[Rfam]
RNA sequence: UGCAAAUUCAAGGCCACAGCAGAAGUGCACAUGGCGUGGUGGUGUCAGCUUCCAACAAAUCUGCGAAUUCUGCU
Numbered sequence: 001u002g003c004a005a006a007u008u009c010a011a012g013g014c015c016a017c018a019g020c021a022g023a024a025g026u027g028c029a030c031a032u033g034g035c036g037u038g039g040u041g042g043u044g045u046c047a048g049c050u051u052c053c054a055a056c057a058a059a060u061c062u063g064c065g066a067a068u069u070c071u072g073c074u
Base pairs, nucleotide, nucleotide: 013040014039015038018074019073020072021071022070023069024068025037026036027035046063047062048061050059051058
Description:
Mammalian CPEB3 ribozyme: a 74-nucleotide sequence from Alligator sinensis. NCBI's taxonomy places the organism under Eukaryota, Opisthokonta, Teleostomi, Amniota, Alligator.